MIR1435 microRNA precursor family: a 202-nucleotide RNA from Dichanthelium oligosanthes.
A search with the family's covariance model found it, with a score of 97 bits.

RNA sequence: UAGUUUUGUCCUAAUUCAAACGUCUCUAACUUUGACCAAAUCUGUAGAAAAAUAUGUUAAUUUCCACAAUCCCAAAUACAUACACUAUUAAUACAUAUUUCAUUGUGGAUUUAAUGAAACUAAUUUGAUGUUGUAGAUGUUGGUAAUUUUUUUUCUAUAAAUUUGGUCAAAGUUAGACAAGUUUAACUUUGAACAAAGCUAA
Numbered sequence: 001u002a003g004u005u006u007u008g009u010c011c012u013a014a015u016u017c018a019a020a021c022g023u024c025u026c027u028a029a030c031u032u033u034g035a036c037c038a039a040a041u042c043u044g045u046a047g048a049a050a051a052a053u054a055u056g057u058u059a060a061u062u063u064c065c066a067c068a069a070u071c072c073c074a075a076a077u078a079c080a081u082a083c084a085c086u087a088u089u090a091a092u093a094c095a096u097a098u099u100u101c102a103u104u105g106u107g108g109a110u111u112u113a114a115u116g117a118a119a120c121u122a123a124u125u126u127g128a129u130g131u132u133g134u135a136g137a138u139g140u141u142g143g144u145a146a147u148u149u150u151u152u153u154u155c156u157a158u159a160a161a162u163u164u165g166g167u168c169a170a171a172g173u174u175a176g177a178c179a180a181g182u183u184u185a186a187c188u189u190u191g192a193a194c195a196a197a198g199c200u201a202a
Stems, first nucleotide, its partner, number of pairs: 005197005011191001013189002016186001018184004023179001025177002031171005045157008055145003059141003063137002066134003073127005

Taxonomically the source falls in Dichanthelium (Eukaryota, Streptophyta, Spermatophyta, Dichantheliinae).